This 103-nucleotide RNA sequence from Bacillus sp. cl95 belongs to the Rfam family "SAM riboswitch aptamer (S box leader)".
RNA sequence: AAUUUAUCAAGAGUGAAUGAGAGAACUGGCUCGAAGAAUUCACAGCAACCUGCAAUAUGCAAGGUGCUCCCACCAGCAAAGCAUAUGCUUUGGUUGAUAAACU
Numbered sequence: 001a002a003u004u005u006a007u008c009a010a011g012a013g014u015g016a017a018u019g020a021g022a023g024a025a026c027u028g029g030c031u032c033g034a035a036g037a038a039u040u041c042a043c044a045g046c047a048a049c050c051u052g053c054a055a056u057a058u059g060c061a062a063g064g065u066g067c068u069c070c071c072a073c074c075a076g077c078a079a080a081g082c083a084u085a086u087g088c089u090u091u092g093g094u095u096g097a098u099a100a101a102c103u
Base pairs, nucleotide, nucleotide: 001103003101004100005099006098007097008096013043014042015041016040017039021032022031023030026076027075028074029073044068045067046066047065049064050063051061052060053059054058072095077092078091079090080089081088082087
Dot-bracket structure: (.((((((....(((((...(((..[[[[)))......)))))((((.((((((...)))).))))))...(]]]]((((((....))))))..))))))).)